[Rfam]
RNA sequence: CGGACCAGUGAUGACAACCGUCAGCGUAUGAGUCUUGGAUGAUGAAUAAUACGUGUCUGGAACUCUGAGGUCCAA
Numbered sequence: 001c002g003g004a005c006c007a008g009u010g011a012u013g014a015c016a017a018c019c020g021u022c023a024g025c026g027u028a029u030g031a032g033u034c035u036u037g038g039a040u041g042a043u044g045a046a047u048a049a050u051a052c053g054u055g056u057c058u059g060g061a062a063c064u065c066u067g068a069g070g071u072c073c074a075a
Stems, first nucleotide, its partner, number of pairs: 002073005

A member of the RNA family "Small nucleolar RNA SNORD113/SNORD114 family" from Propithecus coquereli, 75 nucleotides long. The family's RNA type in Rfam is C/D-box small nucleolar RNA. The family's consensus secondary structure is taken from published work. Gene Ontology terms of the family: nucleolus and RNA processing. The imprinted human domain at 14q32 contains two clusters of tandemly repeated small nucleolar RNAs named 14q(I) and 14q(II) snoRNAs. These two clusters are named SNORD113 and SNORD114 respectively in the HGNC approved gene symbol nomenclature. The snoRNAs found in both clusters are clearly related and are represented here by a single family. These snoRNAs are intron encoded and are processed from the tissue-specific non-coding human MEG8 RNA, which lies downstream of the imprinted genes DLK1 and GTL2. snoRNAs 14q(I) and 14q(II) differ from previously identified C/D box snoRNAs in their expression profiles and lack of complementarity to rRNA and snRNA. Homologues of these snoRNAs are found in the imprinted non-coding mouse transcript Rian, and in the rat non-coding Bsr (brain-specific repetitive) RNA. Rfam 15.1 lists 5,721 matches to the family in 142 species. The match comes from Rfam's covariance-model search (82 bits).